The record is a 75-nucleotide RNA sequence, which matches "RAGATH-18 RNA" in Rfam. It is one of the family's seed sequences.
[Rfam]
RNA sequence: CUUGUGGAGAGUACAAGAACUUGUGAGUAGUAUUUAGAGUUAUCUAAUACGAAAGCAUACUCGAUGAAACAAGAA
Numbered sequence: 001c002u003u004g005u006g007g008a009g010a011g012u013a014c015a016a017g018a019a020c021u022u023g024u025g026a027g028u029a030g031u032a033u034u035u036a037g038a039g040u041u042a043u044c045u046a047a048u049a050c051g052a053a054a055g056c057a058u059a060c061u062c063g064a065u066g067a068a069a070c071a072a073g074a075a
Base pairs, nucleotide, nucleotide: 001073002072003071004070005069009062010061011060012059013058022057023056024055030050031049032048035046036045
By type it is a small RNA.